[Rfam]
RNA sequence: AUUUAACGUGUCUGUGGUUGAAAGUCGAUGCCAGUCGCAGGCGAAACGAUCCACGUAAGUCGGGCAAAGUCCCGGUGAGCAUGGUGCGGCUUAGAAGUAAGUCCGUCCAGAAGUCAUUCUGAGAAAAGUAGUAGUGGGGGGGCCGAUGCCCUAGUAGCGAACCUUUCAGGCGGCGAGUGUGGGGUCAAAGACCAGGUCAGGCGAAGAAU
Numbered sequence: 001a002u003u004u005a006a007c008g009u010g011u012c013u014g015u016g017g018u019u020g021a022a023a024g025u026c027g028a029u030g031c032c033a034g035u036c037g038c039a040g041g042c043g044a045a046a047c048g049a050u051c052c053a054c055g056u057a058a059g060u061c062g063g064g065c066a067a068a069g070u071c072c073c074g075g076u077g078a079g080c081a082u083g084g085u086g087c088g089g090c091u092u093a094g095a096a097g098u099a100a101g102u103c104c105g106u107c108c109a110g111a112a113g114u115c116a117u118u119c120u121g122a123g124a125a126a127a128g129u130a131g132u133a134g135u136g137g138g139g140g141g142g143c144c145g146a147u148g149c150c151c152u153a154g155u156a157g158c159g160a161a162c163c164u165u166u167c168a169g170g171c172g173g174c175g176a177g178u179g180u181g182g183g184g185u186c187a188a189a190g191a192c193c194a195g196g197u198c199a200g201g202c203g204a205a206g207a208a209u
Stems, first nucleotide, its partner, number of pairs: 001209004007203003012200003015194005028180003031041001033091007050084002058076001060074001062072003082187001103173005108121005125166004134158002140151003
RNA: raiA RNA